A member of the RNA family "Small nucleolar RNA SNORD35" from Electrophorus electricus, 83 nucleotides long. On this family, see Nicoloso et al., J Mol Biol 1996: "Intron-encoded, antisense small nucleolar RNAs: the characterization of nine novel species points to their direct role as guides for the 2'-O-ribose methylation of rRNAs". Rfam's curators write: U35 is a C/D box snoRNA located in intron 6 of ribosomal protein L13A and intron 3 of ribosomal protein S11 in humans and at homologous positions in mouse and chicken ribosomal protein genes. U35 guides the methylation of 2'-O-ribose sites in 28S rRNA. Rfam 15.1 lists 1,842 matches to the family in 634 species. The family's consensus secondary structure was predicted with PFOLD. The family is grouped with related families in Rfam's "SNORD35 clan".

RNA sequence: UGCAGAUGAUGUCUAUUCUCACGAUGGUCUUCUGAGCCCUGGGCUCUGUGGAUAAUGCCUUAUGGCAUAGCUGAUGCAGUUUU
Number, nucleotide and partner (000 for none) at each position: 001u078002g077003c076004a075005g000006a000007u000008g000009a000010u000011g000012u000013c000014u000015a000016u000017u000018c000019u000020c000021a000022c000023g000024a000025u000026g000027g000028u000029c000030u000031u000032c000033u000034g000035a000036g000037c000038c000039c000040u000041g000042g000043g000044c000045u000046c000047u000048g000049u000050g000051g000052a000053u000054a000055a000056u000057g000058c000059c000060u000061u000062a000063u000064g000065g000066c000067a000068u000069a000070g000071c000072u000073g000074a000075u004076g003077c002078a001079g000080u000081u000082u000083u000